[Rfam]
RNA sequence: GAUAAAGCGGGUGAAAAGCCCGCUCGCCGAAAGCCCAAGGUUUCCUACGCAACGUUCAUCGGCGUAGGGUGAGUCGGCCCCUAAGGCGAGGCAGAAAUGCGUAGUCGAUGGGAAACAGGUUAAUAUUCCUGUACUUGAUUCAAAUGCGAUGUGGGGACGGAGAAGGUUAGGUUAGCAAGCUGUUGGAAUAGCUUGUUUAAGCCGGUAGGUGGAAGACUUAGGCAAAUCCGGGUCUUCUUAACACCGAGAAGUGACGACGAGUGUCUACGGACAUGAAGUAACCGAUACCACGCUUCCAGGAAAAGCCACUAAGCUUCAGUUUGAAUCGAACCGUACCGCAAACCGACACAGGUGGGCAGGAUGAGAAUUCUAAGGCGCU
Numbered sequence: 001g002a003u004a005a006a007g008c009g010g011g012u013g014a015a016a017a018g019c020c021c022g023c024u025c026g027c028c029g030a031a032a033g034c035c036c037a038a039g040g041u042u043u044c045c046u047a048c049g050c051a052a053c054g055u056u057c058a059u060c061g062g063c064g065u066a067g068g069g070u071g072a073g074u075c076g077g078c079c080c081c082u083a084a085g086g087c088g089a090g091g092c093a094g095a096a097a098u099g100c101g102u103a104g105u106c107g108a109u110g111g112g113a114a115a116c117a118g119g120u121u122a123a124u125a126u127u128c129c130u131g132u133a134c135u136u137g138a139u140u141c142a143a144a145u146g147c148g149a150u151g152u153g154g155g156g157a158c159g160g161a162g163a164a165g166g167u168u169a170g171g172u173u174a175g176c177a178a179g180c181u182g183u184u185g186g187a188a189u190a191g192c193u194u195g196u197u198u199a200a201g202c203c204g205g206u207a208g209g210u211g212g213a214a215g216a217c218u219u220a221g222g223c224a225a226a227u228c229c230g231g232g233u234c235u236u237c238u239u240a241a242c243a244c245c246g247a248g249a250a251g252u253g254a255c256g257a258c259g260a261g262u263g264u265c266u267a268c269g270g271a272c273a274u275g276a277a278g279u280a281a282c283c284g285a286u287a288c289c290a291c292g293c294u295u296c297c298a299g300g301a302a303a304a305g306c307c308a309c310u311a312a313g314c315u316u317c318a319g320u321u322u323g324a325a326u327c328g329a330a331c332c333g334u335a336c337c338g339c340a341a342a343c344c345g346a347c348a349c350a351g352g353u354g355g356g357c358a359g360g361a362u363g364a365g366a367a368u369u370c371u372a373a374g375g376c377g378c379u
Stems, first nucleotide, its partner, number of pairs: 006024006025377004033357004039337002044068006053061002075333003080111002085106003089102001091100003115132005135329011146314002151309004159296004165289003170283005175196006197257002201252002208245003213236007221229002261274005343352002359371003
A member of the RNA family "Bacterial large subunit ribosomal RNA" from Morococcus cerebrosus, 379 nucleotides of a longer RNA. It scores 2865 bits against the family's covariance model.